[Rfam]
RNA: Fungal signal recognition particle RNA
RNA sequence: GACUGUAAUGGUCCAACGGCGAAGACGUUCAAUCACGCUCAGCCGUCCACCCCAAUUUCCAUCAGAACCCCCUCGCUCGCGCCCCGUCCGAACGCCGCGGUGGCCGCCCACUCGCACGGGAAACCUGCGAUGCUGGUAACCCCAAUUGCGGCCCUCAAGCAAUGGAGAUGACCCUUGAGGGAGGACUCACUCUGCAGAGAGCUUUCCCCCGUCGCGUGGCGGGUGGGAUCACGCAGUACGAGGGGUCUUGGGUUGGACAAUAACGGCUGAGAUAGAACAGUUCAACGCUUCUU
Number, nucleotide and partner (000 for none) at each position: 001g013002a012003c011004u000005g000006u000007a000008a000009u000010g000011g003012u002013c001014c000015a000016a000017c000018g289019g288020c287021g286022a000023a000024g283025a000026c000027g278028u277029u276030c275031a000032a273033u272034c271035a000036c269037g267038c266039u265040c000041a000042g000043c000044c000045g258046u257047c256048c255049a254050c000051c252052c251053c250054a249055a248056u000057u000058u245059c000060c000061a000062u000063c000064a000065g000066a000067a000068c000069c000070c000071c244072c243073u242074c240075g239076c000077u000078c236079g234080c233081g232082c000083c227084c226085c225086g224087u223088c222089c221090g220091a000092a217093c216094g215095c214096c000097g212098c211099g210100g209101u000102g141103g140104c000105c000106g137107c136108c135109c132110a131111c000112u130113c129114g128115c127116a126117c000118g125119g124120g000121a000122a000123a000124c119125c118126u116127g115128c114129g113130a112131u110132g109133c000134u000135g108136g107137u106138a000139a000140c103141c102142c000143c000144a000145a000146u000147u000148g000149c000150g000151g000152c000153c000154c000155u159156c000157a000158a000159g155160c000161a000162a000163u000164g207165g206166a205167g204168a203169u000170g000171a000172c000173c000174c199175u198176u197177g000178a000179g000180g000181g192182a191183g190184g000185a000186c000187u000188c000189a000190c183191u182192c181193u000194g000195c000196a000197g176198a175199g174200a000201g000202c000203u168204u167205u166206c165207c164208c000209c100210c099211g098212u097213c000214g095215c094216g093217u092218g000219g000220c090221g089222g088223g087224u086225g085226g084227g083228a000229u000230c000231a000232c081233g080234c079235a000236g078237u000238a000239c075240g074241a000242g073243g072244g071245g058246u000247c000248u055249u054250g053251g052252g051253u000254u049255g048256g047257a046258c045259a000260a000261u000262a000263a000264c000265g039266g038267c037268u000269g036270a000271g034272a033273u032274a000275g030276a029277a028278c027279a000280g000281u000282u000283c024284a000285a000286c021287g020288c019289u018290u000291c000292u000293u000